[Rfam]
RNA: MIR397 microRNA precursor family
Organism: Handroanthus impetiginosus
RNA sequence: CUUAAAAACCUCAUUGAGUGCAGCGUUGAUGAUGCCGUUCGUUUAGUUCGUCGCUUUAGAAUGUUGUUUCAUCAACGCUGCAUUCAAUAAUGUUUUUA
Numbered sequence: 001c002u003u004a005a006a007a008a009c010c011u012c013a014u015u016g017a018g019u020g021c022a023g024c025g026u027u028g029a030u031g032a033u034g035c036c037g038u039u040c041g042u043u044u045a046g047u048u049c050g051u052c053g054c055u056u057u058a059g060a061a062u063g064u065u066g067u068u069u070c071a072u073c074a075a076c077g078c079u080g081c082a083u084u085c086a087a088u089a090a091u092g093u094u095u096u097u098a
Stems, first nucleotide, its partner, number of pairs: 006095004011090001013088016030071003